[Rfam]
This 68-nucleotide sequence from Candidatus Methylaffinis lahnbergensis belongs to the Rfam family "int-alpA RNA". Acidobacteria (1 example), Planctomycetes (1 example), Proteobacteria. The organism belongs to Candidatus Methylaffinis, within Bacteria. Rfam 15.1 lists 577 matches to the family in 491 species.

RNA sequence: CAUGCGGAUAGGCCGACGGGCCGACAAGCCGGGGUGCACCUCCCGGUUUCCGCAUGUUCCUAACGGUG
Numbered sequence: 001c002a003u004g005c006g007g008a009u010a011g012g013c014c015g016a017c018g019g020g021c022c023g024a025c026a027a028g029c030c031g032g033g034g035u036g037c038a039c040c041u042c043c044c045g046g047u048u049u050c051c052g053c054a055u056g057u058u059c060c061u062a063a064c065g066g067u068g
Base pairs, nucleotide, nucleotide: 001056002055003054004053005052006051007050008049011022012021013020014019028047029046030045031044032043041068
Rfam classes the family as a small RNA.